A member of the RNA family "Mammalian CPEB3 ribozyme" from Alligator sinensis, 74 nucleotides long. A search with the family's covariance model found it, with a score of 44 bits. The literature on the family includes a 2004 paper in Nature by Teixeira et al., "Autocatalytic RNA cleavage in the human beta-globin pre-mRNA promotes transcription termination". The family's consensus secondary structure is taken from published work.
RNA sequence: UCACAAGUUCAAGGCCAUAGCAGAAGUGCUUACAGCACAGCCUGUCAGCUUUCUACAAAUCUGUGAAUUCUGUU
Numbered sequence: 001u002c003a004c005a006a007g008u009u010c011a012a013g014g015c016c017a018u019a020g021c022a023g024a025a026g027u028g029c030u031u032a033c034a035g036c037a038c039a040g041c042c043u044g045u046c047a048g049c050u051u052u053c054u055a056c057a058a059a060u061c062u063g064u065g066a067a068u069u070c071u072g073u074u
Base pairs, nucleotide, nucleotide: 013042014041015040019074020073021072022071023070024069025068026038027037028036046063047062048061050059051058052057